Background: A member of the RNA family "Clostridiales-1 RNA" from Catenibacillus scindens, 147 nucleotides long.
[Rfam]
RNA sequence: UGAUACAAGCGUCCAAAGGUCAUGCGGACUGCGCUUGCGCAGGCAAGCAUAACUUUGAGACGCGUAAAACACCAAAAAGAAGCCAUUUUUCAGAGAAAAAUGAGCGGAUUUGAAAUGUUUUAGGAGCGCGAAGCGAUCCGUGUAUCA
Number, nucleotide and partner (000 for none) at each position: 001u147002g146003a145004u144005a143006c142007a141008a000009g000010c062011g061012u060013c059014c000015a000016a056017a055018g054019g053020u052021c000022a050023u049024g048025c047026g000027g000028a000029c042030u041031g040032c039033g038034c000035u000036u000037g000038c033039g032040c031041a030042g029043g000044c000045a000046a000047g025048c024049a023050u022051a000052a020053c019054u018055u017056u016057g000058a000059g013060a012061c011062g010063c000064g000065u000066a121067a120068a119069a118070c117071a116072c000073c000074a000075a000076a000077a110078a109079g000080a000081a000082g105083c104084c102085a101086u100087u099088u098089u097090u096091c000092a000093g000094a000095g000096a090097a089098a088099a087100a086101u085102g084103a000104g083105c082106g000107g000108a000109u078110u077111u000112g000113a000114a000115a000116u071117g070118u069119u068120u067121u066122a000123g139124g138125a137126g000127c135128g134129c133130g000131a000132a000133g129134c128135g127136a000137u125138c124139c123140g000141u007142g006143u005144a004145u003146c002147a001